[Rfam]
RNA sequence: AGCGUCUGUGAUGUUCUGUUACCUACGUUGUUUGAGCCUCAUGAAAACUGCACUGGCUGAGACGCCU
Numbered sequence: 001a002g003c004g005u006c007u008g009u010g011a012u013g014u015u016c017u018g019u020u021a022c023c024u025a026c027g028u029u030g031u032u033u034g035a036g037c038c039u040c041a042u043g044a045a046a047a048c049u050g051c052a053c054u055g056g057c058u059g060a061g062a063c064g065c066c067u
Base pairs, nucleotide, nucleotide: 001067002066003064004063005062006061